[Rfam]
The family of this 540-nucleotide part of an RNA from Methanocalculus chunghsingensis is "Archaeal large subunit ribosomal RNA". The organism belongs to Methanocalculus, within Archaea.
RNA sequence: UAAUUAUGCCAGUUCGUGGAUGGCUCGGUUCGAGAGCUGAUGAAGGGCGUGCCAAGCAGCGAUAUGCUCCGGGAAGGUGCAGGGAGCCUGUGAUCCGGAGAUCCCCGAAUAGGACAUCCCGAUACUUCGGUAUCAAUCCGUCAGGAUGGGGAACGCCCCGAAUUGAAACAUCUCAGUAGGGGCAGGAAGAGAAAUCAACCGAGAUGUCGUGAGUAGAGGCGAUCGAAAACGACGAAGUUCAAACCGAAUCCCUCCGGGGAGAUGUGGUGUUGUAAGCCUCCCGUCGGAUGCAGUCCUUUGAAACGGAACUCACCUGGAACGGUGGAUCAGAGAGGGUGAUAGUCCCGUACGUAUAAACAGGACUGUUUCCGGGAGUGUCUUGAGUAGCGCGGGUUGGAAUUCUCGCGUGAAUCCGGGGGUCAUCAACCUCCAAAACUAAAUACUUCUCGAAACCGAUAGCGAACUAGUAGCGUGAGCGAAAGCUGAAAAGGAUCCCUAAAAAGGAUGUGCAAAGCGCCUGAAACGAACUGGUGAUCGUGU
Numbered sequence: 001u002a003a004u005u006a007u008g009c010c011a012g013u014u015c016g017u018g019g020a021u022g023g024c025u026c027g028g029u030u031c032g033a034g035a036g037c038u039g040a041u042g043a044a045g046g047g048c049g050u051g052c053c054a055a056g057c058a059g060c061g062a063u064a065u066g067c068u069c070c071g072g073g074a075a076g077g078u079g080c081a082g083g084g085a086g087c088c089u090g091u092g093a094u095c096c097g098g099a100g101a102u103c104c105c106c107g108a109a110u111a112g113g114a115c116a117u118c119c120c121g122a123u124a125c126u127u128c129g130g131u132a133u134c135a136a137u138c139c140g141u142c143a144g145g146a147u148g149g150g151g152a153a154c155g156c157c158c159c160g161a162a163u164u165g166a167a168a169c170a171u172c173u174c175a176g177u178a179g180g181g182g183c184a185g186g187a188a189g190a191g192a193a194a195u196c197a198a199c200c201g202a203g204a205u206g207u208c209g210u211g212a213g214u215a216g217a218g219g220c221g222a223u224c225g226a227a228a229a230c231g232a233c234g235a236a237g238u239u240c241a242a243a244c245c246g247a248a249u250c251c252c253u254c255c256g257g258g259g260a261g262a263u264g265u266g267g268u269g270u271u272g273u274a275a276g277c278c279u280c281c282c283g284u285c286g287g288a289u290g291c292a293g294u295c296c297u298u299u300g301a302a303a304c305g306g307a308a309c310u311c312a313c314c315u316g317g318a319a320c321g322g323u324g325g326a327u328c329a330g331a332g333a334g335g336g337u338g339a340u341a342g343u344c345c346c347g348u349a350c351g352u353a354u355a356a357a358c359a360g361g362a363c364u365g366u367u368u369c370c371g372g373g374a375g376u377g378u379c380u381u382g383a384g385u386a387g388c389g390c391g392g393g394u395u396g397g398a399a400u401u402c403u404c405g406c407g408u409g410a411a412u413c414c415g416g417g418g419g420u421c422a423u424c425a426a427c428c429u430c431c432a433a434a435a436c437u438a439a440a441u442a443c444u445u446c447u448c449g450a451a452a453c454c455g456a457u458a459g460c461g462a463a464c465u466a467g468u469a470g471c472g473u474g475a476g477c478g479a480a481a482g483c484u485g486a487a488a489a490g491g492a493u494c495c496c497u498a499a500a501a502a503g504g505a506u507g508u509g510c511a512a513a514g515c516g517c518c519u520g521a522a523a524c525g526a527a528c529u530g531g532u533g534a535u536c537g538u539g540u
Stems, first nucleotide, its partner, number of pairs: 007533010022518001023483002027454002029451006035444002045106003048061003067100006076088003112119002136147004154185001155183005165172002195202002206233005216224002236437004244267003278375004288368001290366002303352003309325001311324004328332001334346003387408007415431005470477002